[Rfam]
RNA sequence: GGCACAGCCCUUGCUCCACUCCUGACACCUGCGAUCCAACGGCGGAUCGCCCGACAACGGCGUCGC
Numbered sequence: 001g002g003c004a005c006a007g008c009c010c011u012u013g014c015u016c017c018a019c020u021c022c023u024g025a026c027a028c029c030u031g032c033g034a035u036c037c038a039a040c041g042g043c044g045g046a047u048c049g050c051c052c053g054a055c056a057a058c059g060g061c062g063u064c065g066c
Base pairs, nucleotide, nucleotide: 031050032049033048034047035046036045037044
A member of the RNA family "narK RNA", 66 nucleotides long.
Rfam classes the family as a cis-regulatory element.
The family's consensus secondary structure is taken from published work.